RNA sequence: GUUGAAGUUUCAUCUAUAAACGGAUAAGACUUUUGUCUUAGUAACAUAUACGAAUUGUUGAAGCAAACAAAUUGGCCAUACCCCAUACAUGUAUGGGGUAUGGCCAAUUUGUU
Numbered sequence: 001g002u003u004g005a006a007g008u009u010u011c012a013u014c015u016a017u018a019a020a021c022g023g024a025u026a027a028g029a030c031u032u033u034u035g036u037c038u039u040a041g042u043a044a045c046a047u048a049u050a051c052g053a054a055u056u057g058u059u060g061a062a063g064c065a066a067a068c069a070a071a072u073u074g075g076c077c078a079u080a081c082c083c084c085a086u087a088c089a090u091g092u093a094u095g096g097g098g099u100a101u102g103g104c105c106a107a108u109u110u111g112u113u
Stems, first nucleotide, its partner, number of pairs: 009024003013020001069110013083096003087092001
The family of this 113-nucleotide sequence from Philydrum lanuginosum is "Plastid-psbA-1 3UTR RNA". Rfam describes the family as follows. Plastid psbA-1 is a non-coding RNA (ncRNA) present in plastids. It was identified in inverted repeat sequences in the 3 prime untranslate region (3UTR) of photosystem II quinone-binding protein (psbA).